This 175-nucleotide RNA sequence from Alteribacter keqinensis belongs to the Rfam family "glmS glucosamine-6-phosphate activated ribozyme aptamer". Taxonomically the source falls in Alteribacter (Bacteria, Bacillati, Bacillota, Bacillaceae). A reference for the family is Winkler et al. (2004), "Control of gene expression by a natural metabolite-responsive ribozyme", Nature. A search with the family's covariance model found it, with a score of 114 bits.

RNA sequence: GUUAGUUUAAAAGCGCCUGAACUGCCCUUGUGAACGGACAAAGCAACGGCAGUUGACGAGGAGGAGGUUUAUCGAGCAUUUCGGCGGAUGCCUCCCGGUUGCGAUCAUCACAACCGAAAAUCAAAGCCCAAAACAAAGAGGCGACUCUUUGAACAAAAGCUGCGAUUUUGAUGAC
Numbered sequence: 001g002u003u004a005g006u007u008u009a010a011a012a013g014c015g016c017c018u019g020a021a022c023u024g025c026c027c028u029u030g031u032g033a034a035c036g037g038a039c040a041a042a043g044c045a046a047c048g049g050c051a052g053u054u055g056a057c058g059a060g061g062a063g064g065a066g067g068u069u070u071a072u073c074g075a076g077c078a079u080u081u082c083g084g085c086g087g088a089u090g091c092c093u094c095c096c097g098g099u100u101g102c103g104a105u106c107a108u109c110a111c112a113a114c115c116g117a118a119a120a121u122c123a124a125a126g127c128c129c130a131a132a133a134c135a136a137a138g139a140g141g142c143g144a145c146u147c148u149u150u151g152a153a154c155a156a157a158a159g160c161u162g163c164g165a166u167u168u169u170g171a172u173g174a175c
Stems, first nucleotide, its partner, number of pairs: 020054007029045003063095005072084004096116006120166003125161002134151007